[Rfam]
Description
Rfam assigns this 145-nucleotide RNA from Rhizobium sp. BK275 to the family "FMN riboswitch aptamer (RFN element)". The organism belongs to Rhizobium, within Bacteria. Pairs were carried over by alignment from the consensus structure, which is taken from published work.

RNA sequence: CAAUGUUCUCAGGGCGGGGUGCAAUUCCCCACCGGCGGUAUCGAGGCAACUCGGAGCCCGCGAGCGCCUUCGUGAAAGCGAAGGGUCAGCAGAUCCGGUGAGACGCCGGAGCCGACGGUCACAGUCCGGAUGGAAGAGAGCAACG
Numbered sequence: 001c002a003a004u005g006u007u008c009u010c011a012g013g014g015c016g017g018g019g020u021g022c023a024a025u026u027c028c029c030c031a032c033c034g035g036c037g038g039u040a041u042c043g044a045g046g047c048a049a050c051u052c053g054g055a056g057c058c059c060g061c062g063a064g065c066g067c068c069u070u071c072g073u074g075a076a077a078g079c080g081a082a083g084g085g086u087c088a089g090c091a092g093a094u095c096c097g098g099u100g101a102g103a104c105g106c107c108g109g110a111g112c113c114g115a116c117g118g119u120c121a122c123a124g125u126c127c128g129g130a131u132g133g134a135a136g137a138g139a140g141c142a143a144c145g
Stems, first nucleotide, its partner, number of pairs: 004142007017029003031125002033114002035061004056112002064090002094110005116128003